U4 spliceosomal RNA: a 141-nucleotide RNA sequence from Chelydra serpentina. From the family's description: U4 small nuclear RNA (U4 snRNA) is a component of the major U2-dependent spliceosome. The literature on the family includes a 1997 paper in Nucleic Acids Res by Zwieb, "The uRNA database". Lineage of the source: Eukaryota > Opisthokonta > Dipnotetrapodomorpha > Cryptodira > Chelydra. The match comes from Rfam's covariance-model search (57 bits). Rfam classes the family as a spliceosomal small nuclear RNA. The family's consensus secondary structure is taken from published work.
[Rfam]
RNA sequence: CAUGAAGCGCAAACAUGAUCUCCUAGCUUCUGAGGUUCAACUGAGGCAUGGUUAUUACUAAUUGAAAACUUUUUCAAAUAUCCUGCCUUGACAGGUUGCAAUACAGCUGUCAUUAGCAAUUUUUAGCAGCUUCUUUAGAGG
Numbered sequence: 001c002a003u004g005a006a007g008c009g010c011a012a013a014c015a016u017g018a019u020c021u022c023c024u025a026g027c028u029u030c031u032g033a034g035g036u037u038c039a040a041c042u043g044a045g046g047c048a049u050g051g052u053u054a055u056u057a058c059u060a061a062u063u064g065a066a067a068a069c070u071u072u073u074u075c076a077a078a079u080a081u082c083c084u085g086c087c088u089u090g091a092c093a094g095g096u097u098g099c100a101a102u103a104c105a106g107c108u109g110u111c112a113u114u115a116g117c118a119a120u121u122u123u124u125a126g127c128a129g130c131u132u133c134u135u136u137a138g139a140g141g
Stems, first nucleotide, its partner, number of pairs: 021051002024048001026047003034042003085117002089112006096105001130141004